[Rfam]
RNA sequence: ACAACAACAAUAACAAACGCUGAACCCCACAAUAAAAACAAGACGUAUCGACUCCAGCACAAUAAAAACAACACGGCGGAGGCGCAGCUAACUGAUUCUUUUGGAGAGGAAUUGCUUUUGGGGCUUGCCCCACAGCCAGGACAAGAACAAUAAAACUGCCUAGAGGCAGCGUCGGACUGGUUGGAUCGCAAGGUCAUGGCAGCGUCAGCGUCCAAAGUAAUCCGUUUGCUAUUAGCUCCCAGAGUGGGAGUCCGUCCUCAGGCCCCUGGCCUCGAGGAACGGGUCGGACAACAAAAAUAACAAGCCGACAUAAUAAUAAAAACAAAGAAAGCAUUACUUAGGGGGAGCUUCGGCUCCCCCAGUAGCUUUACCCCCCCCGCAAGAUCCGUCGUUCAC
Numbered sequence: 001a002c003a004a005c006a007a008c009a010a011u012a013a014c015a016a017a018c019g020c021u022g023a024a025c026c027c028c029a030c031a032a033u034a035a036a037a038a039c040a041a042g043a044c045g046u047a048u049c050g051a052c053u054c055c056a057g058c059a060c061a062a063u064a065a066a067a068a069c070a071a072c073a074c075g076g077c078g079g080a081g082g083c084g085c086a087g088c089u090a091a092c093u094g095a096u097u098c099u100u101u102u103g104g105a106g107a108g109g110a111a112u113u114g115c116u117u118u119u120g121g122g123g124c125u126u127g128c129c130c131c132a133c134a135g136c137c138a139g140g141a142c143a144a145g146a147a148c149a150a151u152a153a154a155a156c157u158g159c160c161u162a163g164a165g166g167c168a169g170c171g172u173c174g175g176a177c178u179g180g181u182u183g184g185a186u187c188g189c190a191a192g193g194u195c196a197u198g199g200c201a202g203c204g205u206c207a208g209c210g211u212c213c214a215a216a217g218u219a220a221u222c223c224g225u226u227u228g229c230u231a232u233u234a235g236c237u238c239c240c241a242g243a244g245u246g247g248g249a250g251u252c253c254g255u256c257c258u259c260a261g262g263c264c265c266c267u268g269g270c271c272u273c274g275a276g277g278a279a280c281g282g283g284u285c286g287g288a289c290a291a292c293a294a295a296a297a298u299a300a301c302a303a304g305c306c307g308a309c310a311u312a313a314u315a316a317u318a319a320a321a322a323c324a325a326a327g328a329a330a331g332c333a334u335u336a337c338u339u340a341g342g343g344g345g346a347g348c349u350u351c352g353g354c355u356c357c358c359c360c361a362g363u364a365g366c367u368u369u370a371c372c373c374c375c376c377c378c379g380c381a382a383g384a385u386c387c388g389u390c391g392u393u394c395a396c
Stems, first nucleotide, its partner, number of pairs: 049084002052081004099217005113210003133183007156169005235252001236250004276378002281373001282306002285304001325368003341360008
RNA: Pseudomonas sRNA CrcZ
Organism: Pseudomonas kuykendallii